Annotation: Shown here is a 73-nucleotide sequence, a member of the family "mir-17 microRNA precursor family".
[Rfam]
RNA sequence: CAAGUUGUGCAAAAGUGCUUACAGUGCAGGUAGAGUUCAGGAUCUACUGCAGUUUAAGCACUUCUGGCAUUAC
Numbered sequence: 001c002a003a004g005u006u007g008u009g010c011a012a013a014a015g016u017g018c019u020u021a022c023a024g025u026g027c028a029g030g031u032a033g034a035g036u037u038c039a040g041g042a043u044c045u046a047c048u049g050c051a052g053u054u055u056a057a058g059c060a061c062u063u064c065u066g067g068c069a070u071u072a073c
Base pairs, nucleotide, nucleotide: 004073005072007070009068010067013063014062015061016060017059018058019057020056021055023053025051026050027049029048030047031046032045033044
Source information
The base pairs follow the family's consensus structure, which was predicted with RNAalifold. A reference for the family is Lagos-Quintana et al. (2001), "Identification of novel genes coding for small expressed RNAs", Science. Rfam describes the family as follows. This family represents the microRNA (miRNA) precursor mir-17, family, which includes mir-20, mir-91, and mir-103. miRNAs are transcribed as ~70nt precursors (modelled here) and subsequently processed by the Dicer enzyme to give a ~22nt product. In this case the mature sequence comes from the 3' arm of the precursor. The extents of the hairpin precursors are not generally known and are estimated based on hairpin prediction.